[Rfam]
RNA sequence: GGAAGGGCAACGAUCCCGGUGGAUCGGCCGGACUUCAAAUCCGGUGGACGAUGCCAUGCAUCGUCGGGUGGGUUCGACUCCCACACUCUUCC
Numbered sequence: 001g002g003a004a005g006g007g008c009a010a011c012g013a014u015c016c017c018g019g020u021g022g023a024u025c026g027g028c029c030g031g032a033c034u035u036c037a038a039a040u041c042c043g044g045u046g047g048a049c050g051a052u053g054c055c056a057u058g059c060a061u062c063g064u065c066g067g068g069u070g071g072g073u074u075c076g077a078c079u080c081c082c083a084c085a086c087u088c089u090u091c092c
Stems, first nucleotide, its partner, number of pairs: 001092007011026006027045006047065005069083004

The family of this 92-nucleotide sequence from Roseateles aquatilis is "Selenocysteine transfer RNA". A reference for the family is Mizutani and Goto (2000), "Eukaryotic selenocysteine tRNA has the 9/4 secondary structure", FEBS Lett. Lineage of the source: Bacteria > Pseudomonadati > Pseudomonadota > Sphaerotilaceae > Roseateles. It scores 78 bits against the family's covariance model.